[Rfam]
RNA sequence: AACCCGAAAAGGCAAACCAUCCGAAAGGGUGGGACGCAAAGCUACCGGCCUAAAUCCUGUCUUAGGACAUGGUAGCAGGGCUGCUGAG
Numbered sequence: 001a002a003c004c005c006g007a008a009a010a011g012g013c014a015a016a017c018c019a020u021c022c023g024a025a026a027g028g029g030u031g032g033g034a035c036g037c038a039a040a041g042c043u044a045c046c047g048g049c050c051u052a053a054a055u056c057c058u059g060u061c062u063u064a065g066g067a068c069a070u071g072g073u074a075g076c077a078g079g080g081c082u083g084c085u086g087a088g
Stems, first nucleotide, its partner, number of pairs: 012037002017032006040082004045078001047076001048073003055067004
RNA: c-di-GMP-I riboswitch aptamer